[Rfam]
RNA sequence: AGACUCUCAAAGUGGCUGUGAAAUGGUUUUAUUUUGCUCAUAUCACAGCCAGCUUUGAUGAGCUGGA
Numbered sequence: 001a002g003a004c005u006c007u008c009a010a011a012g013u014g015g016c017u018g019u020g021a022a023a024u025g026g027u028u029u030u031a032u033u034u035u036g037c038u039c040a041u042a043u044c045a046c047a048g049c050c051a052g053c054u055u056u057g058a059u060g061a062g063c064u065g066g067a
Stems, first nucleotide, its partner, number of pairs: 005061002007058006013051009024042002